Rfam assigns this 127-nucleotide sequence from Heyndrickxia shackletonii to the family "PyrR binding site".
[Rfam]
RNA sequence: ACCACCUUUUAAAAUAAGUCCAGAGAGGCUUAAAAGGGUGUUUUAAUGUGCAUAUGGAACGAUUUAUUAAACAUAUUCACAUUAUGUAUAACACCCUGCUCUUGAUUGAAGCAGGGUGUUUUUUUAU
Numbered sequence: 001a002c003c004a005c006c007u008u009u010u011a012a013a014a015u016a017a018g019u020c021c022a023g024a025g026a027g028g029c030u031u032a033a034a035a036g037g038g039u040g041u042u043u044u045a046a047u048g049u050g051c052a053u054a055u056g057g058a059a060c061g062a063u064u065u066a067u068u069a070a071a072c073a074u075a076u077u078c079a080c081a082u083u084a085u086g087u088a089u090a091a092c093a094c095c096c097u098g099c100u101c102u103u104g105a106u107u108g109a110a111g112c113a114g115g116g117u118g119u120u121u122u123u124u125u126a127u
Stems, first nucleotide, its partner, number of pairs: 005037005015032006044084007052076005088122001090120011
NCBI's taxonomy places the organism under Bacteria, Bacilli, Caryophanales, Bacillaceae, Heyndrickxia. About the family: This family represents the PyrR binding site and terminator structure. This RNA structure is found upstream of a variety of genes involved in pyrimidine biosynthesis and transport. The literature on the family includes a 2001 paper in Nucleic Acids Res by Bonner et al., "Molecular recognition of pyr mRNA by the Bacillus subtilis attenuation regulatory protein PyrR".